[Rfam]
Small nucleolar RNA SNORA84: a 136-nucleotide RNA sequence from Amphiprion percula. A reference for the family is Marker et al. (2002), "Experimental RNomics: identification of 140 candidates for small non-messenger RNAs in the plant Arabidopsis thaliana", Curr Biol. By type it is an H/ACA-box small nucleolar RNA. Rfam 15.1 lists 757 matches to the family in 629 species.
RNA sequence: GCCUGGUGGUUCCUAGAGUCGGCUCCAAAGUGCUGAACUGUAGGUUUGUUUAAACAGGCACAUAUUGAUUUCUGCGAUUUUAUGCAUGGAAGCUGCCACUAUAGCAGCCUUCCAUAGCCCGGUUGCAGAUACACUG
Numbered sequence: 001g002c003c004u005g006g007u008g009g010u011u012c013c014u015a016g017a018g019u020c021g022g023c024u025c026c027a028a029a030g031u032g033c034u035g036a037a038c039u040g041u042a043g044g045u046u047u048g049u050u051u052a053a054a055c056a057g058g059c060a061c062a063u064a065u066u067g068a069u070u071u072c073u074g075c076g077a078u079u080u081u082a083u084g085c086a087u088g089g090a091a092g093c094u095g096c097c098a099c100u101a102u103a104g105c106a107g108c109c110u111u112c113c114a115u116a117g118c119c120c121g122g123u124u125g126c127a128g129a130u131a132c133a134c135u136g
Stems, first nucleotide, its partner, number of pairs: 001059004008049001012044004017039001019036005072128001074126006084118002086115004091110002093107004